This 404-nucleotide RNA from Pristimantibacillus lignocellulolyticus belongs to the Rfam family "Bacterial RNase P class A".
RNA sequence: AAAGUUUGACAGACAAUCGCUGGUAGCCAAGAUGCUACGAGAGGAAAGUCCGGGCUCCGCAUGGCAGGAUGCUGGAUAACGUCCAGUCGGCGCAAGCUGAAGGAUAGUGCCACAGAAAUGGACCGCCGAUGGCUGACUUAUGUCAGAACAGGUAAGGGUGGAACCGUGGUGUAAGAGACCACGAGGUGCGUAGGUGACUACGUUCCUGGUAAACCCCAUCUGGAGCAAAACCGAGAGAAUGCAGUAGCUUUGUGCUACAGCCUUAGCCUGAGGCGCGUUCGGGUGAGUUGCUUGAGCCAUAUAGCAAUGUAUGGCCUAGAUAGAUGAUUGUCGCUUGUAGUGGGAGGGUCGUUCCCGUUAUUACCACUUAUAGUACAGAACCCGGCUUAAGGCAAACUUUCCGC
Numbered sequence: 001a002a003a004g005u006u007u008g009a010c011a012g013a014c015a016a017u018c019g020c021u022g023g024u025a026g027c028c029a030a031g032a033u034g035c036u037a038c039g040a041g042a043g044g045a046a047a048g049u050c051c052g053g054g055c056u057c058c059g060c061a062u063g064g065c066a067g068g069a070u071g072c073u074g075g076a077u078a079a080c081g082u083c084c085a086g087u088c089g090g091c092g093c094a095a096g097c098u099g100a101a102g103g104a105u106a107g108u109g110c111c112a113c114a115g116a117a118a119u120g121g122a123c124c125g126c127c128g129a130u131g132g133c134u135g136a137c138u139u140a141u142g143u144c145a146g147a148a149c150a151g152g153u154a155a156g157g158g159u160g161g162a163a164c165c166g167u168g169g170u171g172u173a174a175g176a177g178a179c180c181a182c183g184a185g186g187u188g189c190g191u192a193g194g195u196g197a198c199u200a201c202g203u204u205c206c207u208g209g210u211a212a213a214c215c216c217c218a219u220c221u222g223g224a225g226c227a228a229a230a231c232c233g234a235g236a237g238a239a240u241g242c243a244g245u246a247g248c249u250u251u252g253u254g255c256u257a258c259a260g261c262c263u264u265a266g267c268c269u270g271a272g273g274c275g276c277g278u279u280c281g282g283g284u285g286a287g288u289u290g291c292u293u294g295a296g297c298c299a300u301a302u303a304g305c306a307a308u309g310u311a312u313g314g315c316c317u318a319g320a321u322a323g324a325u326g327a328u329u330g331u332c333g334c335u336u337g338u339a340g341u342g343g344g345a346g347g348g349u350c351g352u353u354c355c356c357g358u359u360a361u362u363a364c365c366a367c368u369u370a371u372a373g374u375a376c377a378g379a380a381c382c383c384g385g386c387u388u389a390a391g392g393c394a395a396a397c398u399u400u401c402c403g404c
Base pairs, nucleotide, nucleotide: 001400002399003398004397005396006395007394008393010391012332013331014330015329016328017327018326020041021040023038024037025036026035027034046388047387048386050385051384052383053382054381055225056224057223058222063268064267065266067221068220069219070218071217072086073085074084075083076082087101088099089098090097091096102216103215107214108213109210110209111208123157124156125153126152127151133146134145135144136143137142165183166182167181168180169179170178186205188203189202190201191200192199193198229289230288231287237280238279239278240277241276242275260274261273262272263271264270296315297314298313299312300311301310302309303308
It scores 262 bits against the family's covariance model. Pairs were carried over by alignment from the consensus structure, which is taken from published work.